[Rfam]
RNA: Small nucleolar RNA snoR77
Organism: Cannabis sativa
RNA sequence: AGGCAACACUUCUGUGAUUUUUUAUGACGGAUGAUGUGUUAUACUGCUCAUAAAAAAAAUUCUAUGGCUCUUCAGAUUUGCUGAGGUAACAGUGAAGCUGGUCUAGUAAGCUUUAGUACAUU
Numbered sequence: 001a002g003g004c005a006a007c008a009c010u011u012c013u014g015u016g017a018u019u020u021u022u023u024a025u026g027a028c029g030g031a032u033g034a035u036g037u038g039u040u041a042u043a044c045u046g047c048u049c050a051u052a053a054a055a056a057a058a059a060u061u062c063u064a065u066g067g068c069u070c071u072u073c074a075g076a077u078u079u080g081c082u083g084a085g086g087u088a089a090c091a092g093u094g095a096a097g098c099u100g101g102u103c104u105a106g107u108a109a110g111c112u113u114u115a116g117u118a119c120a121u122u
Base pairs, nucleotide, nucleotide: 002040003039004038005037007036008035009033011031012030013029014028015027017025062116063115064114067111068110069109074104075103076102077101078100080098081097082096085090